Annotation: This 378-nucleotide sequence from Limibacillus halophilus belongs to the Rfam family "Alphaproteobacteria transfer-messenger RNA". The family's consensus secondary structure is taken from published work.
RNA sequence: CCCCUUUUGUUUGGACGGGACUCGGCCUAUAUUAGAGACGUCUCCUCGGAGACUAUGGCGAUAAACGCCGUUCGUAAUAGGCAGAGCGGACCCGGGGGCAGUACCCGGCGCCUCCACCAGUUUCGUCCGCCCCAAUGGUUUCUCGUUAGAGACAGGGGCGGACUUUAAGGGGGCGAACCAGGAUCGACGCAUGUUGAAAGGGACGAUUUUCGCUCGGCAUGGCACCACCGUUAUCGGGCCAUCGCAAUAGUUGCCAACGACAACUUUGCUGAGGCUCGCGCAGCUGCUUAAUGCAGCCUAGCGACCUGAACUGAAUCCCUGCCGUUUUGCAACGUCAGGUGGGGUCUGUCGGGCACCUAGCAACAGAAGCCCGGCAUU
Numbered sequence: 001c002c003c004c005u006u007u008u009g010u011u012u013g014g015a016c017g018g019g020a021c022u023c024g025g026c027c028u029a030u031a032u033u034a035g036a037g038a039c040g041u042c043u044c045c046u047c048g049g050a051g052a053c054u055a056u057g058g059c060g061a062u063a064a065a066c067g068c069c070g071u072u073c074g075u076a077a078u079a080g081g082c083a084g085a086g087c088g089g090a091c092c093c094g095g096g097g098g099c100a101g102u103a104c105c106c107g108g109c110g111c112c113u114c115c116a117c118c119a120g121u122u123u124c125g126u127c128c129g130c131c132c133c134a135a136u137g138g139u140u141u142c143u144c145g146u147u148a149g150a151g152a153c154a155g156g157g158g159c160g161g162a163c164u165u166u167a168a169g170g171g172g173g174c175g176a177a178c179c180a181g182g183a184u185c186g187a188c189g190c191a192u193g194u195u196g197a198a199a200g201g202g203a204c205g206a207u208u209u210u211c212g213c214u215c216g217g218c219a220u221g222g223c224a225c226c227a228c229c230g231u232u233a234u235c236g237g238g239c240c241a242u243c244g245c246a247a248u249a250g251u252u253g254c255c256a257a258c259g260a261c262a263a264c265u266u267u268g269c270u271g272a273g274g275c276u277c278g279c280g281c282a283g284c285u286g287c288u289u290a291a292u293g294c295a296g297c298c299u300a301g302c303g304a305c306c307u308g309a310a311c312u313g314a315a316u317c318c319c320u321g322c323c324g325u326u327u328u329g330c331a332a333c334g335u336c337a338g339g340u341g342g343g344g345u346c347u348g349u350c351g352g353g354c355a356c357c358u359a360g361c362a363a364c365a366g367a368a369g370c371c372c373g374g375c376a377u378u
Stems, first nucleotide, its partner, number of pairs: 040053005057214005067207001069205005082193002086190003092108005109175007215230003220241003225237002342358004348375006
Dot-bracket structure: .......................................(((((....)))))...(((((.....(.(((((........((..(((...(((((.......)))))(((((((.....................................................)))))))............))).)).......))))).)..)))))[[[..(((..((.]]].....)).)))....................................................................................................[[[[..((((((.]]]]...........))))))...
It scores 265 bits against the family's covariance model.